[Rfam]
RNA sequence: GAAUGAAUAAAGCAAAGAUAAUGAGCACAAAAUUUGAAUCGGGUUGCUAUGCUUGCCAUCUCUGAUACCUCUUUUCGGCUUUGAUUUGGGGCACGGUUCCACAACAUAAUG
Numbered sequence: 001g002a003a004u005g006a007a008u009a010a011a012g013c014a015a016a017g018a019u020a021a022u023g024a025g026c027a028c029a030a031a032a033u034u035u036g037a038a039u040c041g042g043g044u045u046g047c048u049a050u051g052c053u054u055g056c057c058a059u060c061u062c063u064g065a066u067a068c069c070u071c072u073u074u075u076c077g078g079c080u081u082u083g084a085u086u087u088g089g090g091g092c093a094c095g096g097u098u099c100c101a102c103a104a105c106a107u108a109a110u111g
Stems, first nucleotide, its partner, number of pairs: 012026002041094001043092003051085001053083001055079003
Dot-bracket structure: ...........((...........))..............(.(((.....(.(.(((...................)))...).)....))).).................